[Rfam]
RNA sequence: GGAGUCCCAUCAGGAAAAAGCCUAACCAGCAGUCCUGUAGCUAGUUCUUGGAGGUUAUUCGGUAACGAAUAACUUUAAGCAGCGGGCCGAAAGCGAAAGCUGAAGUGAUGGAGCCUCGAAAAAAUAAGUGGAGACAGGCCGAUGUGGUUACACACACAGAAGGUAAUAUCGGUUCGAGCGUUAGUGGUGAGUUUGAAUCGGCACUCCGGGGUCUGAGAGCU
Numbered sequence: 001g002g003a004g005u006c007c008c009a010u011c012a013g014g015a016a017a018a019a020g021c022c023u024a025a026c027c028a029g030c031a032g033u034c035c036u037g038u039a040g041c042u043a044g045u046u047c048u049u050g051g052a053g054g055u056u057a058u059u060c061g062g063u064a065a066c067g068a069a070u071a072a073c074u075u076u077a078a079g080c081a082g083c084g085g086g087c088c089g090a091a092a093g094c095g096a097a098a099g100c101u102g103a104a105g106u107g108a109u110g111g112a113g114c115c116u117c118g119a120a121a122a123a124a125u126a127a128g129u130g131g132a133g134a135c136a137g138g139c140c141g142a143u144g145u146g147g148u149u150a151c152a153c154a155c156a157c158a159g160a161a162g163g164u165a166a167u168a169u170c171g172g173u174u175c176g177a178g179c180g181u182u183a184g185u186g187g188u189g190a191g192u193u194u195g196a197a198u199c200g201g202c203a204c205u206c207c208g209g210g211g212u213c214u215g216a217g218a219g220c221u
Stems, first nucleotide, its partner, number of pairs: 012036004020030002023190001025188002038089001040087002047084001049081002051076011111213001113212006131206003137202001138164003143158004169201011
Rfam assigns this 221-nucleotide RNA sequence from Paenibacillus popilliae to the family "Group II catalytic intron D1-D4-6". About the family: Group II introns are found in rRNA, tRNA and mRNA of organelles in fungi, plants and protists, and also in mRNA in bacteria. Taxonomically the source falls in Paenibacillus popilliae (Bacteria, Bacillati, Bacillota, Paenibacillaceae). The base pairs follow the family's consensus structure. The match comes from Rfam's covariance-model search (115 bits).